Rhizobiales sRNA Atu_At1: a 100-nucleotide RNA from Phyllobacterium zundukense. By type it is a small RNA.
RNA sequence: AUGUCAGCUGUGUCAACCGGACAUGAUGGCAGGACGGACAAGGGAGUUUUUCCGAUCUUGGCCAACGAAAUGGCAGGCGAGCGUCUAUCCCAUCUGGCUG
Number, nucleotide and partner (000 for none) at each position: 001a000002u000003g000004u000005c000006a099007g098008c097009u096010g000011u023012g022013u021014c020015a000016a000017c000018c000019g000020g014021a013022c012023a011024u000025g094026a093027u092028g090029g089030c000031a000032g000033g085034a084035c083036g082037g000038a000039c060040a059041a058042g057043g056044g000045a000046g000047u000048u000049u000050u000051u000052c000053c000054g000055a000056u043057c042058u041059u040060g039061g074062c073063c072064a000065a000066c000067g000068a000069a000070a000071u000072g063073g062074c061075a000076g000077g000078c000079g000080a000081g000082c036083g035084u034085c033086u000087a000088u000089c029090c028091c000092a027093u026094c025095u000096g009097g008098c007099u006100g000